[Rfam]
RNA: mir-660 microRNA precursor family
RNA sequence: UCCUUUUCCCAUACCCAUUGCAUAUCGGAGUUGUGAAUUCUUAAAAUAUCUCCUGUAUGCAUGGAUUAUAGGAGGA
Number, nucleotide and partner (000 for none) at each position: 001u000002c075003c074004u073005u072006u071007u070008c000009c000010c000011a000012u000013a000014c000015c064016c063017a062018u061019u000020g060021c059022a058023u057024a056025u055026c000027g053028g052029a051030g050031u000032u048033g047034u046035g000036a000037a000038u000039u000040c000041u000042u000043a000044a000045a000046a034047u033048a032049u000050c030051u029052c028053c027054u000055g025056u024057a023058u022059g021060c020061a018062u017063g016064g015065a000066u000067u000068a000069u000070a007071g006072g005073a004074g003075g002076a000